[Rfam]
Rfam assigns this 132-nucleotide RNA sequence from Oncorhynchus kisutch to the family "Small nucleolar RNA SNORA68".

RNA sequence: UAUGCACCCUAACCCAACGGCCAUAUCAAAUGAAUGGUAUGAUCUUGUCAGGUGUGCUAAAAUCAAUGCGUUCCUUGUCGCCUUUCUCUGAAGCUGCUGUGCUGUUGAAAGUGAAUUCAAGGUUCAACAUUA
Number, nucleotide and partner (000 for none) at each position: 001u000002a000003u000004g057005c056006a055007c054008c000009c052010u000011a000012a000013c000014c000015c000016a000017a000018c000019g044020g043021c000022c041023a040024u039025a038026u037027c036028a035029a000030a000031u000032g000033a000034a000035u028036g027037g026038u025039a024040u023041g022042a000043u020044c019045u000046u000047g000048u000049c000050a000051g000052g009053u000054g007055u006056g005057c004058u000059a000060a000061a000062a000063u000064c000065a000066a000067u000068g000069c000070g125071u000072u000073c122074c121075u120076u119077g000078u000079c000080g000081c000082c111083u110084u109085u108086c107087u000088c000089u000090g105091a000092a103093g102094c101095u000096g000097c000098u000099g000100u000101g094102c093103u092104g000105u090106u000107g086108a085109a084110a083111g082112u000113g000114a000115a000116u000117u000118c000119a076120a075121g074122g073123u000124u000125c070126a000127a000128c000129a000130u000131u000132a000
The literature on the family includes a 1997 paper in Genes Dev by Ganot et al., "The family of box ACA small nucleolar RNAs is defined by an evolutionarily conserved secondary structure and ubiquitous sequence elements essential for RNA accumulation". The base pairs follow the family's consensus structure, which was predicted with PFOLD. Its family is annotated with RNA processing and nucleolus in the Gene Ontology. The source organism's lineage runs through Eukaryota, Bilateria, Gnathostomata, Teleostei and Oncorhynchus. Rfam's curators write: U68 is a member of the H/ACA class of small nucleolar RNAs (snoRNAs) which act as guides in the the modification of uridines to pseudouridines.